[Rfam]
RNA: MIR394 microRNA precursor family
Organism: Zea mays
RNA sequence: CUUACUGAAGAGUUCCUUGGCAUUCUGUCCACCUCCUCUCGCCGAUCUUGCAGAAAGUUUACCAGUUCUGUUGCAUUUUUUUUGGAGGUGGGCAUACUGCCAAUGGAGCUGUGUAGG
Numbered sequence: 001c002u003u004a005c006u007g008a009a010g011a012g013u014u015c016c017u018u019g020g021c022a023u024u025c026u027g028u029c030c031a032c033c034u035c036c037u038c039u040c041g042c043c044g045a046u047c048u049u050g051c052a053g054a055a056a057g058u059u060u061a062c063c064a065g066u067u068c069u070g071u072u073g074c075a076u077u078u079u080u081u082u083u084g085g086a087g088g089u090g091g092g093c094a095u096a097c098u099g100c101c102a103a104u105g106g107a108g109c110u111g112u113g114u115a116g117g
Stems, first nucleotide, its partner, number of pairs: 014107001017103006026094011